[Rfam]
RNA sequence: AUUCAGAAAAGGCAACCCUAUCGAAAGAUCGGGACGCAAAACUGUGAAUCUAAGGAAUUAUUAUAUUCUAUGAUUGCACAGUCGCCUCA
Numbered sequence: 001a002u003u004c005a006g007a008a009a010a011g012g013c014a015a016c017c018c019u020a021u022c023g024a025a026a027g028a029u030c031g032g033g034a035c036g037c038a039a040a041a042c043u044g045u046g047a048a049u050c051u052a053a054g055g056a057a058u059u060a061u062u063a064u065a066u067u068c069u070a071u072g073a074u075u076g077c078a079c080a081g082u083c084g085c086c087u088c089a
Stems, first nucleotide, its partner, number of pairs: 012037002017032002020029003041082006048074003055068004
The record is an 89-nucleotide RNA sequence from Salipaludibacillus agaradhaerens, which matches "c-di-GMP-I riboswitch aptamer" in Rfam.
About the family: GEMM was predicted in a large-scale screen for bacterial structured RNA regulatory elements.
The base pairs follow the family's consensus structure, which is taken from published work.
The match comes from Rfam's covariance-model search (57 bits).
Rfam links the family to the GO term cyclic-di-GMP binding.